RNA: Small nucleolar RNA SNORA48
Organism: Saimiri boliviensis
RNA sequence: UCUCCUCUUUUUAGUUAAAGAUAAUUUGCUUUUUGGCAGGGCCCAUCUCCUGUUAGCCAGGGACAAAGUGAUCCCUGUUCACCCCCAGCUUGGCUUUUGAUCUGUGCCCAUGCCUGGUUCAUGCCUUGGACGCAUGG
Numbered sequence: 001u002c003u004c005c006u007c008u009u010u011u012u013a014g015u016u017a018a019a020g021a022u023a024a025u026u027u028g029c030u031u032u033u034u035g036g037c038a039g040g041g042c043c044c045a046u047c048u049c050c051u052g053u054u055a056g057c058c059a060g061g062g063a064c065a066a067a068g069u070g071a072u073c074c075c076u077g078u079u080c081a082c083c084c085c086c087a088g089c090u091u092g093g094c095u096u097u098u099g100a101u102c103u104g105u106g107c108c109c110a111u112g113c114c115u116g117g118u119u120c121a122u123g124c125c126u127u128g129g130a131c132g133c134a135u136g137g
Stems, first nucleotide, its partner, number of pairs: 001065001003063004011056004019048004076132006092125003098121003102117003106113002